RNA sequence: UGAUGAGCUAGUCCGGGUAGCCCGGCGUUACCUGUAACCCGAGAUCGCCGAUACGCGGGGGACGAAGCCAAGGGAAGAUGCGUCGAAGGGACUCCAGCCUGGAAUCUCAACGGAGAAGCCCCGUCCUGCUUGGAUGGUGCAGGUAUGCGGGUUUGCUGGAGAGCAGGUCUUCAUACCAUAACUGCGGAAACCGGUCGAGGCCCGGAAGGGAGCAGACUUACUGUGGGCAACUAUCGCUUGCGGGGCUGCGGGGUGGAGAAGAGGUCCCAGUCUCCUGGUAUCUCCAAGAUUCAACGACCCGAGGCGUGCUCAUCG
Numbered sequence: 001u002g003a004u005g006a007g008c009u010a011g012u013c014c015g016g017g018u019a020g021c022c023c024g025g026c027g028u029u030a031c032c033u034g035u036a037a038c039c040c041g042a043g044a045u046c047g048c049c050g051a052u053a054c055g056c057g058g059g060g061g062a063c064g065a066a067g068c069c070a071a072g073g074g075a076a077g078a079u080g081c082g083u084c085g086a087a088g089g090g091a092c093u094c095c096a097g098c099c100u101g102g103a104a105u106c107u108c109a110a111c112g113g114a115g116a117a118g119c120c121c122c123g124u125c126c127u128g129c130u131u132g133g134a135u136g137g138u139g140c141a142g143g144u145a146u147g148c149g150g151g152u153u154u155g156c157u158g159g160a161g162a163g164c165a166g167g168u169c170u171u172c173a174u175a176c177c178a179u180a181a182c183u184g185c186g187g188a189a190a191c192c193g194g195u196c197g198a199g200g201c202c203c204g205g206a207a208g209g210g211a212g213c214a215g216a217c218u219u220a221c222u223g224u225g226g227g228c229a230a231c232u233a234u235c236g237c238u239u240g241c242g243g244g245g246c247u248g249c250g251g252g253g254u255g256g257a258g259a260a261g262a263g264g265u266c267c268c269a270g271u272c273u274c275c276u277g278g279u280a281u282c283u284c285c286a287a288g289a290u291u292c293a294a295c296g297a298c299c300c301g302a303g304g305c306g307u308g309c310u311c312a313u314c315g
Stems, first nucleotide, its partner, number of pairs: 001315008011063004015033007038059004043054001067305003072300003077295001079293002083288001088284004094278004099270004104265005111258001118254007125244005132237001133235005138229002142177006149170009182226006193218004201210003
Description
This 315-nucleotide RNA from Methanosarcina barkeri belongs to the Rfam family "Archaeal signal recognition particle RNA". The sequence is in the family's curated seed alignment. NCBI's taxonomy places the organism under Archaea, Methanobacteriati, Methanomicrobia, Methanosarcina, Methanosarcina barkeri. Its Rfam clan is "SRP clan". Its family is annotated with SRP-dependent cotranslational protein targeting to membrane, signal sequence recognition and signal recognition particle, plasma membrane targeting in the Gene Ontology. Pairs were carried over by alignment from the consensus structure, which is taken from published work. The family's RNA type in Rfam is non-coding RNA gene. On this family, see Wild et al., Curr Opin Struct Biol 2002: "Towards the structure of the mammalian signal recognition particle".